[Rfam]
RNA: SAM (S-adenosyl methionine) riboswitch aptamer
Organism: Microbispora triticiradicis
RNA sequence: GGUAUUGAGCGCCGACGCCAAGCCCCGGCUCGUCGGCCGGCAACCCUCGCACCGCGCGGGGUGCCCCGGGGAAAACCUGGCGGCGUGGCAGUCGCGCCGCAAGCGCGGGCC
Numbered sequence: 001g002g003u004a005u006u007g008a009g010c011g012c013c014g015a016c017g018c019c020a021a022g023c024c025c026c027g028g029c030u031c032g033u034c035g036g037c038c039g040g041c042a043a044c045c046c047u048c049g050c051a052c053c054g055c056g057c058g059g060g061g062u063g064c065c066c067c068g069g070g071g072a073a074a075a076c077c078u079g080g081c082g083g084c085g086u087g088g089c090a091g092u093c094g095c096g097c098c099g100c101a102a103g104c105g106c107g108g109g110c111c
Stems, first nucleotide, its partner, number of pairs: 001077003009038001011037006021030002039065003044061003048056001080100009